[Rfam]
RNA sequence: CUGGAAGUGAGGUUGCUGUAAAUUGCUGUGUGGUGUUGUGUGUGUUGGGGGGGUGGGGGGGGGUGCGCGUGUAGGCCGAGUGUGUGAGUGGAUGCGUGAAUGUCUGAGUGGGUGCGUGAAUGUGUGCGUGCGUGCGCUCGCCCAUGCACCCCUCCCCCGGCCUACACGUUGAUCUUAUUUGAUCGGGUUGGGACUCCAGCCCCGCCGGUCCGACCCGAAAUGAAAAGCUUCCCUCCUGCGAAGCCCUUCCUCGGGGCGCUGUGCAGCGAGGCCCCUUGGGCGGUGGCAACGCCGUGGCCCCGGAGGUUCCGAGCGGUCCUGUGGGGCCCGGCGCUCAGAAGUGAUGAAUUGAUCAGAUAGACGAGGCCGGGCUUGUCCCGCGCCAUUGAUUAUCGAGGCGAUUCUGAUCUGA
Numbered sequence: 001c002u003g004g005a006a007g008u009g010a011g012g013u014u015g016c017u018g019u020a021a022a023u024u025g026c027u028g029u030g031u032g033g034u035g036u037u038g039u040g041u042g043u044g045u046u047g048g049g050g051g052g053g054u055g056g057g058g059g060g061g062g063g064u065g066c067g068c069g070u071g072u073a074g075g076c077c078g079a080g081u082g083u084g085u086g087a088g089u090g091g092a093u094g095c096g097u098g099a100a101u102g103u104c105u106g107a108g109u110g111g112g113u114g115c116g117u118g119a120a121u122g123u124g125u126g127c128g129u130g131c132g133u134g135c136g137c138u139c140g141c142c143c144a145u146g147c148a149c150c151c152c153u154c155c156c157c158c159g160g161c162c163u164a165c166a167c168g169u170u171g172a173u174c175u176u177a178u179u180u181g182a183u184c185g186g187g188u189u190g191g192g193a194c195u196c197c198a199g200c201c202c203c204g205c206c207g208g209u210c211c212g213a214c215c216c217g218a219a220a221u222g223a224a225a226a227g228c229u230u231c232c233c234u235c236c237u238g239c240g241a242a243g244c245c246c247u248u249c250c251u252c253g254g255g256g257c258g259c260u261g262u263g264c265a266g267c268g269a270g271g272c273c274c275c276u277u278g279g280g281c282g283g284u285g286g287c288a289a290c291g292c293c294g295u296g297g298c299c300c301c302g303g304a305g306g307u308u309c310c311g312a313g314c315g316g317u318c319c320u321g322u323g324g325g326g327c328c329c330g331g332c333g334c335u336c337a338g339a340a341g342u343g344a345u346g347a348a349u350u351g352a353u354c355a356g357a358u359a360g361a362c363g364a365g366g367c368c369g370g371g372c373u374u375g376u377c378c379c380g381c382g383c384c385a386u387u388g389a390u391u392a393u394c395g396a397g398g399c400g401a402u403u404c405u406g407a408u409c410u411g412a
Stems, first nucleotide, its partner, number of pairs: 050150002053147002056070001058068001060066001090105001092103003108137003113132005178226003183218004188213003192210001196208002199205002249306004254301003258298003263295002266292003271287003274283002314330003317326003336411004346404006365384003370379002
Dot-bracket structure: .................................................((.((.(.(.(.....).).)...................(.(((......))).)..(((..(((((..........)))))..)))........)).))...........................(((..((((.(((.(...((.((...)).)).)))).)))).....)))......................((((.(((.(((..((.(((..(((((......)).)))..))).)))))))).)))).......((((((....))).))).....((((......((((((.............(((..((......))..)))..............))))))...)))).
Rfam assigns this 412-nucleotide RNA from Bos taurus to the family "Small Cajal body-specific RNA 2".
Rfam's curators put it in the seed alignment.
The literature on the family includes a 2004 paper in Curr Biol by Tycowski et al., "Guide RNAs with 5' caps and novel box C/D snoRNA-like domains for modification of snRNAs in metazoa".
Its family is annotated with nucleolus and RNA processing in the Gene Ontology.
The family's consensus secondary structure is taken from published work.